[Rfam]
RNA sequence: UCGGCCCCGGUUCACGUAUGCGCAAUCCGCGCCUGCGACCCGGAGCC
Numbered sequence: 001u002c003g004g005c006c007c008c009g010g011u012u013c014a015c016g017u018a019u020g021c022g023c024a025a026u027c028c029g030c031g032c033c034u035g036c037g038a039c040c041c042g043g044a045g046c047c
Stems, first nucleotide, its partner, number of pairs: 003047003007043004015037004020032004